[Rfam]
RNA sequence: AGUUGCAAGUUCAAGGCCAUAGAAGAAGCGCUCACAGCGUAGUCUUGUUAGAUUAUGAUGAAUUUGUGAAUUGUGCU
Numbered sequence: 001a002g003u004u005g006c007a008a009g010u011u012c013a014a015g016g017c018c019a020u021a022g023a024a025g026a027a028g029c030g031c032u033c034a035c036a037g038c039g040u041a042g043u044c045u046u047g048u049u050a051g052a053u054u055a056u057g058a059u060g061a062a063u064u065u066g067u068g069a070a071u072u073g074u075g076c077u
Base pairs, nucleotide, nucleotide: 014045015044016043017042021077022076024074026072027071028040029039030038049066050065051064052063053062054061
Overview
A member of the RNA family "Mammalian CPEB3 ribozyme" from Crocodylus porosus, 77 nucleotides long. A reference for the family is Teixeira et al. (2004), "Autocatalytic RNA cleavage in the human beta-globin pre-mRNA promotes transcription termination", Nature. Pairs were carried over by alignment from the consensus structure, which is taken from published work. The match comes from Rfam's covariance-model search (41 bits). Its family is annotated with RNA nuclease activity in the Gene Ontology. Rfam's curators write: The mammalian CPEB3 ribozyme is a self cleaving RNA located in the second intron of the CPEB3 gene which belongs to a family of genes regulating messenger RNA polyadenylation. NCBI's taxonomy places the organism under Eukaryota, Teleostomi, Sauropsida, Crocodylidae, Crocodylus.